[Rfam]
RNA sequence: UUCCUAUACAGAUGUAUCAACACAAGAUAGUUGGGCAUCUCCCUGUAGGACGAAGUUUAUCAGAAACUCUGAUAAUAAGUCUUGUUGUGUGGCUACGGUCGAAACAGGGUGAGUCAGAGCGGAGUAGGUUAGCCGUAAGACCUUGAGUUGAAAAACUCUAAAAUUGAGCUAGAGGUAUGGUUUCUGAAAUUCCGUAUUUUCUAGUUACGGCAGU
Numbered sequence: 001u002u003c004c005u006a007u008a009c010a011g012a013u014g015u016a017u018c019a020a021c022a023c024a025a026g027a028u029a030g031u032u033g034g035g036c037a038u039c040u041c042c043c044u045g046u047a048g049g050a051c052g053a054a055g056u057u058u059a060u061c062a063g064a065a066a067c068u069c070u071g072a073u074a075a076u077a078a079g080u081c082u083u084g085u086u087g088u089g090u091g092g093c094u095a096c097g098g099u100c101g102a103a104a105c106a107g108g109g110u111g112a113g114u115c116a117g118a119g120c121g122g123a124g125u126a127g128g129u130u131a132g133c134c135g136u137a138a139g140a141c142c143u144u145g146a147g148u149u150g151a152a153a154a155a156c157u158c159u160a161a162a163a164u165u166g167a168g169c170u171a172g173a174g175g176u177a178u179g180g181u182u183u184c185u186g187a188a189a190u191u192c193c194g195u196a197u198u199u200u201c202u203a204g205u206u207a208c209g210g211c212a213g214u
Stems, first nucleotide, its partner, number of pairs: 002050007010040006017034005022028001067119007080109007091100002126143005132211006138164001145158005169204007176196004